[Rfam]
RNA sequence: UGUAAAAAUUAGCCAAAUCCUAGCAAUAGGAACGGAGGACCCGACUUUUUUUGGGGUGAAUCCUGCAUUUUGUGGGUAGGGUUUAUUCCUUUCGACCCGAACCCGUCAGCUAACUUCGUAGGCUAAAAGGAAAGGGAGG
Numbered sequence: 001u002g003u004a005a006a007a008a009u010u011a012g013c014c015a016a017a018u019c020c021u022a023g024c025a026a027u028a029g030g031a032a033c034g035g036a037g038g039a040c041c042c043g044a045c046u047u048u049u050u051u052u053g054g055g056g057u058g059a060a061u062c063c064u065g066c067a068u069u070u071u072g073u074g075g076g077u078a079g080g081g082u083u084u085a086u087u088c089c090u091u092u093c094g095a096c097c098c099g100a101a102c103c104c105g106u107c108a109g110c111u112a113a114c115u116u117c118g119u120a121g122g123c124u125a126a127a128a129g130g131a132a133a134g135g136g137a138g139g
Stems, first nucleotide, its partner, number of pairs: 011124004018031003032119006042053002054104003062076004079098004

This 139-nucleotide sequence from Desulforamulus ferrireducens belongs to the Rfam family "c-di-AMP riboswitch aptamer (ydaO/yuaA leader)". The base pairs follow the family's consensus structure. It scores 104 bits against the family's covariance model.